RNA sequence: UGACGCAGGCCGGGUGACCGCGUCGCCUUCCCCGGAAGGCGCCGAGGAAAGUCCGGACACCGCAGGGCAGGGCGCUGGGGAAACCCCAGGCGGCGAAAGCCGACGGAAAGUGGAACAGAAAGCAAACCGCCGUCGAGGCGUUCUCCGGAGGUCUCGACGGUAAGGGUGAAACGGUGGGGUAAGAGCCCACCAGCGUCGUGGCGACACGGCGGCUCGCUAAACCCCGUCCGGUGCAAGGUGAAGCAGAUCCCGUUGACGCGGCCCGCCGAGGGAUCGGGUACACCGCUCGAGCCGUGAGGCAACUCCCGGCCUAGAGGGAUGGUCACCCUCGACAGAAUCCGGCUUACAGGCCUGCUAAGGAA
Numbered sequence: 001u002g003a004c005g006c007a008g009g010c011c012g013g014g015u016g017a018c019c020g021c022g023u024c025g026c027c028u029u030c031c032c033c034g035g036a037a038g039g040c041g042c043c044g045a046g047g048a049a050a051g052u053c054c055g056g057a058c059a060c061c062g063c064a065g066g067g068c069a070g071g072g073c074g075c076u077g078g079g080g081a082a083a084c085c086c087c088a089g090g091c092g093g094c095g096a097a098a099g100c101c102g103a104c105g106g107a108a109a110g111u112g113g114a115a116c117a118g119a120a121a122g123c124a125a126a127c128c129g130c131c132g133u134c135g136a137g138g139c140g141u142u143c144u145c146c147g148g149a150g151g152u153c154u155c156g157a158c159g160g161u162a163a164g165g166g167u168g169a170a171a172c173g174g175u176g177g178g179g180u181a182a183g184a185g186c187c188c189a190c191c192a193g194c195g196u197c198g199u200g201g202c203g204a205c206a207c208g209g210c211g212g213c214u215c216g217c218u219a220a221a222c223c224c225c226g227u228c229c230g231g232u233g234c235a236a237g238g239u240g241a242a243g244c245a246g247a248u249c250c251c252g253u254u255g256a257c258g259c260g261g262c263c264c265g266c267c268g269a270g271g272g273a274u275c276g277g278g279u280a281c282a283c284c285g286c287u288c289g290a291g292c293c294g295u296g297a298g299g300c301a302a303c304u305c306c307c308g309g310c311c312u313a314g315a316g317g318g319a320u321g322g323u324c325a326c327c328c329u330c331g332a333c334a335g336a337a338u339c340c341g342g343c344u345u346a347c348a349g350g351c352c353u354g355c356u357a358a359g360g361a362a
Stems, first nucleotide, its partner, number of pairs: 001358001003356001005355007012347001013327007021044002024041006049345003053342005058233004065264004070229005075089005090104001091102004105224002110222002112218002127165002129161011173191006193213001194211007237284004246275006258266002291310004296305003
Record summary:
The record is a 362-nucleotide sequence from a Thermoleophilia bacterium, which matches "Bacterial RNase P class A" in Rfam. The match comes from Rfam's covariance-model search (276 bits). The organism belongs to Thermoleophilia, within Bacteria. About the family: Ribonuclease P (RNase P) is a ubiquitous endoribonuclease, found in archaea, bacteria and eukarya as well as chloroplasts and mitochondria. Its best characterised activity is the generation of mature 5'-ends of tRNAs by cleaving the 5'-leader elements of precursor-tRNAs. Cellular RNase Ps are ribonucleoproteins. RNA from bacterial RNase Ps retains its catalytic activity in the absence of the protein subunit, i.e. it is a ribozyme. Rfam classes the family as a ribozyme.